Annotation: Rfam assigns this 142-nucleotide RNA sequence from Cucumis melo to the family "Small nucleolar RNA snoR2/U65". Pairs were carried over by alignment from the consensus structure, which was predicted with WAR. Rfam 15.1 lists 908 matches to the family in 230 species. The family is grouped with related families in Rfam's "SNORA65 clan". Rfam links the family to the GO terms nucleolus and RNA processing. The organism belongs to Cucumis, within Eukaryota. A reference for the family is Shaw et al. (1998), "Localization and processing from a polycistronic precursor of novel snoRNAs in maize", J Cell Sci.
RNA sequence: GGUUCAAUGCCACGUUGUAGAUAGCUCCAUGGCCUUGACCUACAUGCUAUGAUUGAACCAAAAACAAGUUUUUUCACAUCUUGAUAGGAAUCUGUUCAUCUUUUUCUAUAGAUUUACAGAGCUGUUUUGUGUGAUUUUUUUG
Number, nucleotide and partner (000 for none) at each position: 001g000002g058003u057004u056005c055006a054007a053008u052009g050010c000011c000012a000013c046014g045015u044016u000017g043018u042019a000020g040021a000022u038023a000024g033025c032026u031027c000028c000029a000030u000031g026032g025033c024034c000035u000036u000037g000038a022039c000040c020041u000042a018043c017044a015045u014046g013047c000048u000049a000050u009051g000052a008053u007054u006055g005056a004057a003058c002059c000060a000061a000062a000063a000064a000065c000066a000067a000068g000069u000070u000071u000072u000073u000074u134075c133076a132077c131078a130079u000080c000081u000082u000083g000084a000085u000086a000087g123088g122089a000090a000091u000092c119093u118094g117095u000096u000097c000098a113099u112100c111101u000102u000103u000104u000105u000106c000107u000108a000109u000110a000111g100112a099113u098114u000115u000116a000117c094118a093119g092120a000121g000122c088123u087124g000125u000126u000127u000128u000129g000130u078131g077132u076133g075134a074135u000136u000137u000138u000139u000140u000141u000142g000